[Rfam]
RNA sequence: AGCUUAAGAUGUUCGACUAAAAGCAUCACUUCCUGUGAUAACGUCGAACUGGCUCAUCCUGUGAG
Numbered sequence: 001a002g003c004u005u006a007a008g009a010u011g012u013u014c015g016a017c018u019a020a021a022a023g024c025a026u027c028a029c030u031u032c033c034u035g036u037g038a039u040a041a042c043g044u045c046g047a048a049c050u051g052g053c054u055c056a057u058c059c060u061g062u063g064a065g
Stems, first nucleotide, its partner, number of pairs: 011049007025039005053065001055061001
The record is a 65-nucleotide sequence from Pueribacillus theae, which matches "Bacillaceae-1 RNA" in Rfam.
It scores 54 bits against the family's covariance model.